A member of the RNA family "Small nucleolar RNA U54" from Cocos nucifera, 94 nucleotides long. Rfam 15.1 lists 614 matches to the family in 206 species. About the family: U54 is a C/D box small nucleolar RNA, which acts as a methylation guide for 18S ribosomal RNA in plants.
RNA sequence: AGCUCGAAGAUGGCAGCCAAUUAUUAUUUUGGCAAUAUAUGCUAUUCUGAUAGAGUUUAGCUUUAAGUGCUGACAUUGGAAUAUACCGAGAGCU
Numbered sequence: 001a002g003c004u005c006g007a008a009g010a011u012g013g014c015a016g017c018c019a020a021u022u023a024u025u026a027u028u029u030u031g032g033c034a035a036u037a038u039a040u041g042c043u044a045u046u047c048u049g050a051u052a053g054a055g056u057u058u059a060g061c062u063u064u065a066a067g068u069g070c071u072g073a074c075a076u077u078g079g080a081a082u083a084u085a086c087c088g089a090g091a092g093c094u
Base pairs, nucleotide, nucleotide: 001094002093003092004091005090